Nucleotides: 167
Stems, first nucleotide, its partner, number of pairs: 001167006031051004036046002
Number, partner (000 for none) and nucleotide at each position: 001167u002166u003165g004164c005163c006162c007000g008000a009000u010000g011000a012000u013000u014000a015000u016000a017000a018000a019000a020000a021000g022000a023000c024000g025000c026000c027000a028000a029000a030000g031051a032050g033049g034048a035000c036046u037045u038000a039000a040000a041000g042000c043000u044000g045037g046036a047000a048034u049033u050032c051031u052000u053000u054000u055000u056000c057000c058000u059000u060000u061000u062000a063000u064000u065000c066000u067000c068000u069000c070000c071000u072000c073000u074000a075000c076000u077000c078000u079000a080000u081000g082000u083000c084000u085000u086000c087000a088000a089000c090000u091000u092000c093000u094000u095000u096000u097000c098000u099000a100000c101000u102000u103000u104000u105000c106000u107000c108000u109000g110000c111000u112000u113000u114000u115000u116000c117000u118000c119000u120000c121000u122000g123000g124000a125000u126000g127000u128000c129000c130000a131000g132000c133000g134000u135000c136000c137000u138000a139000u140000g141000a142000g143000c144000g145000a146000a147000g148000a149000u150000u151000a152000u153000g154000a155000g156000a157000u158000a159000u160000g161000a162006g163005g164004g165003c166002a167001a
Shown here is a 167-nucleotide RNA sequence from Mus spicilegus, a member of the family "Small nucleolar RNA SNORD97". On this family, see Vitali et al., Nucleic Acids Res 2003: "Identification of 13 novel human modification guide RNAs". The family has 20 seed sequences and 639 matches in Rfam 15.1. The family's consensus secondary structure was predicted with WAR. Its family is annotated with nucleolus and RNA processing in the Gene Ontology. By type it is a C/D-box small nucleolar RNA. NCBI's taxonomy places the organism under Eukaryota, Gnathostomata, Sarcopterygii, Amniota, Mus. A search with the family's covariance model found it, with a score of 138 bits.